RNA sequence: AGGUAACACCAAAAAGCUAAGGUGUUACCUAUUCCAAUCUUUCUAUAGAAAUUUCUGUAGUUCCUUGCUUUUAGUGCUUAAGUGAGUCUUGCAGGUCAUAUAUCUCCAAAGACCUGG
Numbered sequence: 001a002g003g004u005a006a007c008a009c010c011a012a013a014a015a016g017c018u019a020a021g022g023u024g025u026u027a028c029c030u031a032u033u034c035c036a037a038u039c040u041u042u043c044u045a046u047a048g049a050a051a052u053u054u055c056u057g058u059a060g061u062u063c064c065u066u067g068c069u070u071u072u073a074g075u076g077c078u079u080a081a082g083u084g085a086g087u088c089u090u091g092c093a094g095g096u097c098a099u100a101u102a103u104c105u106c107c108a109a110a111g112a113c114c115u116g117g
Stems, first nucleotide, its partner, number of pairs: 001030003005026006054110001056108001067096004072091003076087003
RNA: Small nucleolar RNA snoR104